[Rfam]
RNA sequence: AGGCCUGAAGACAGAAGCAGGGUCUGAUCUGCAGCCUCAGUGGCAGCUGUUGAUCGGCCGUUGCCUCUCUCUUUCUCUCCG
Numbered sequence: 001a002g003g004c005c006u007g008a009a010g011a012c013a014g015a016a017g018c019a020g021g022g023u024c025u026g027a028u029c030u031g032c033a034g035c036c037u038c039a040g041u042g043g044c045a046g047c048u049g050u051u052g053a054u055c056g057g058c059c060g061u062u063g064c065c066u067c068u069c070u071c072u073u074u075c076u077c078u079c080c081g
Stems, first nucleotide, its partner, number of pairs: 008073004013068003017064004022059001024057006032049004
mir-574 microRNA precursor family: an 81-nucleotide RNA sequence from Myotis lucifugus.
The family's consensus secondary structure was predicted with RNAalifold.
Clan: mir-574 microRNA precursor clan.
A search with the family's covariance model found it, with a score of 90 bits.
Rfam links the family to the GO terms miRNA-mediated post-transcriptional gene silencing and RISC complex.